MIR2912 microRNA precursor family: a 157-nucleotide RNA sequence from Populus alba. A search with the family's covariance model found it, with a score of 116 bits. Taxonomically the source falls in Populus (Eukaryota, Mesangiospermae, eudicotyledons, fabids). Rfam 15.1 lists 15,051 matches to the family in 15 species. Gene Ontology terms of the family: miRNA-mediated post-transcriptional gene silencing and RISC complex.
RNA sequence: UCUAGAACUCAAGAUAUGAGCUGAAAACCGAACAGUGUCCGAGCUGCAGGACAGGUUCCGACUUCUCCGUUGUUCCUAAGAUUUGAACUUGAAAACGGUAGAUUUGAGUCUUGGACUCUUCAUGAAAGUUGUAGGUCUAUGUCUUAGCUUUUCGAUU
Dot-bracket structure: ..(.(((((.((((((((.((((.(.((......(((...(.(.(..(((((.((.((.(.((........(((...........)))........))).)).))..)))))..).).).)))....))).))).).))))))))))...))).)..